[Rfam]
RNA sequence: GGUACUGAGGGUCAACCCCCCCUGACCCUUGGUACCGACGGCCCCGGCAUCCCCCCCGCCGGGGCCGUCCCCA
Number, nucleotide and partner (000 for none) at each position: 001g000002g035003u034004a033005c032006u031007g030008a029009g028010g027011g026012u025013c024014a000015a000016c000017c000018c000019c000020c000021c000022c000023u000024g013025a012026c011027c010028c009029u008030u007031g006032g005033u004034a003035c002036c000037g069038a068039c067040g066041g065042c064043c063044c062045c061046g060047g059048c058049a000050u000051c000052c000053c000054c000055c000056c000057c000058g048059c047060c046061g045062g044063g043064g042065c041066c040067g039068u038069c037070c000071c000072c000073a000
6C RNA: a 73-nucleotide RNA from Ornithinimicrobium cerasi. The family's RNA type in Rfam is cis-regulatory element. For this family Rfam cites "Identification of 22 candidate structured RNAs in bacteria using the CMfinder comparative genomics pipeline" (Weinberg et al., Nucleic Acids Res, 2007). The match comes from Rfam's covariance-model search (58 bits).